[Rfam]
RNA sequence: GAAGUCCGCCGGGCAACCGCGGCGCGCAAGCGCGGAGGAAAGUCCGGGCCCCGCAGAGCAGGAUGCCGGCUAACGGCCGGGCGCAGCAAGCCGCGCGAAAGCGCGGCCCAAGGCGACGGAAAGUGGAACAGAAAACAUACCGCCGAUGGCCGCAAGGAUCAGGCAAGGUUGAAAUGGUGCGCCUGCGGGCGGGCGGAAACGCCGGGUAAGAGCCCACCGCGUGCGCGGCAACGUGCACGGCAUGCAAAACCCCAUCCGGGGCAAGGCCAAAUAGGGAAGCGAUGACGCGGCUCGCGUCGCUUCCGGGUAGGCUGCUCGAGCGACGUGGCAACACGUCGCCCAGAUGAAUGGUUGCCGGUGCGUUCGCGCACAACAGAACCCGGCUUACAGGCGGACUUCCACU
Numbered sequence: 001g002a003a004g005u006c007c008g009c010c011g012g013g014c015a016a017c018c019g020c021g022g023c024g025c026g027c028a029a030g031c032g033c034g035g036a037g038g039a040a041a042g043u044c045c046g047g048g049c050c051c052c053g054c055a056g057a058g059c060a061g062g063a064u065g066c067c068g069g070c071u072a073a074c075g076g077c078c079g080g081g082c083g084c085a086g087c088a089a090g091c092c093g094c095g096c097g098a099a100a101g102c103g104c105g106g107c108c109c110a111a112g113g114c115g116a117c118g119g120a121a122a123g124u125g126g127a128a129c130a131g132a133a134a135a136c137a138u139a140c141c142g143c144c145g146a147u148g149g150c151c152g153c154a155a156g157g158a159u160c161a162g163g164c165a166a167g168g169u170u171g172a173a174a175u176g177g178u179g180c181g182c183c184u185g186c187g188g189g190c191g192g193g194c195g196g197a198a199a200c201g202c203c204g205g206g207u208a209a210g211a212g213c214c215c216a217c218c219g220c221g222u223g224c225g226c227g228g229c230a231a232c233g234u235g236c237a238c239g240g241c242a243u244g245c246a247a248a249a250c251c252c253c254a255u256c257c258g259g260g261g262c263a264a265g266g267c268c269a270a271a272u273a274g275g276g277a278a279g280c281g282a283u284g285a286c287g288c289g290g291c292u293c294g295c296g297u298c299g300c301u302u303c304c305g306g307g308u309a310g311g312c313u314g315c316u317c318g319a320g321c322g323a324c325g326u327g328g329c330a331a332c333a334c335g336u337c338g339c340c341c342a343g344a345u346g347a348a349u350g351g352u353u354g355c356c357g358g359u360g361c362g363u364u365c366g367c368g369c370a371c372a373a374c375a376g377a378a379c380c381c382g383g384c385u386u387a388c389a390g391g392c393g394g395a396c397u398u399c400c401a402c403u
Stems, first nucleotide, its partner, number of pairs: 001399010011388001012356007020035001022033004040386003044383005049261004056293004061257005066080005081117001082115003118252002123250002126245001140168002142164003176218004181213001219241001220239008265313004275304006284298005320339008
Shown here is a 403-nucleotide RNA sequence from Methyloversatilis sp. RAC08, a member of the family "Bacterial RNase P class A". By type it is a ribozyme. A search with the family's covariance model found it, with a score of 253 bits. NCBI's taxonomy places the organism under Bacteria, Pseudomonadota, Betaproteobacteria, Nitrosomonadales, Methyloversatilis.